[Rfam]
RNA sequence: CGGGGUUUGAUUCAAUGAUUCGUCCUAACCGCCUACUCGGUCUACUACUAAACGCAUUCAAUUUGCGCGGUAGGCUUGUGGGCGGAAUCAAUCACUGAUUCAGACUCGCAAAACUUAAAAAACCCGCGCCGAUGCGCGGGUUUUUUU
Numbered sequence: 001c002g003g004g005g006u007u008u009g010a011u012u013c014a015a016u017g018a019u020u021c022g023u024c025c026u027a028a029c030c031g032c033c034u035a036c037u038c039g040g041u042c043u044a045c046u047a048c049u050a051a052a053c054g055c056a057u058u059c060a061a062u063u064u065g066c067g068c069g070g071u072a073g074g075c076u077u078g079u080g081g082g083c084g085g086a087a088u089c090a091a092u093c094a095c096u097g098a099u100u101c102a103g104a105c106u107c108g109c110a111a112a113a114c115u116u117a118a119a120a121a122a123c124c125c126g127c128g129c130c131g132a133u134g135c136g137c138g139g140g141u142u143u144u145u146u147u
Base pairs, nucleotide, nucleotide: 004107006104007103008102009101010100012098013097014096016094017093018092029085030084031083032082033081034080035079036078045073046072047071048070049069053067054066055065056064119144120143121142122141123140124139125138126137127136128135129134
RNA: Leucine operon leader